[Rfam]
RNA sequence: AGCCUAGUAUUUCCUCCCAAUCGCGCCUAUAUCUGACUGGUCGAAAGACGAUGGCGCUGAAACUCAGAGCGGACUGCGGGCAGACCCGGGGGCAGUACCCGGCGCCUCCACCUUAGCAGCUUGAGCUUAAAGGUCUCAUUUCGGUGAGAUCGAUUCCGUCGCAAGGCGGAAUUCCUAAGCUGUUAAGGCGGGGGCGAAACAGGAUCGAUGGUCGCGAAGAAGCUCUGAAUUGUUCCCGGCAUGAUACCGCCGUUAUCGGGUCAAAAACCUAAAUGCAAACGAUAACGUUGCAUUGAACGAAGUGCGCCUCGCGGCGUAACCUGUUCGGGGUUGGUCCACCUGGCAACAGAACGGCCAUCGCC
Dot-bracket structure: .......................................(((....)))...((.((......(((((((......(((.((...(((((.......)))))(((((((................................................................................)))))))............)).))).......)))))))...)).))((((.[[[..[[)))).....]].]]]................................................................((((..[.[.))))............].]......
Rfam assigns this 362-nucleotide sequence from Bradyrhizobium sediminis to the family "Alphaproteobacteria transfer-messenger RNA". The family is grouped with related families in Rfam's "tRNA clan". By type it is a non-coding RNA gene.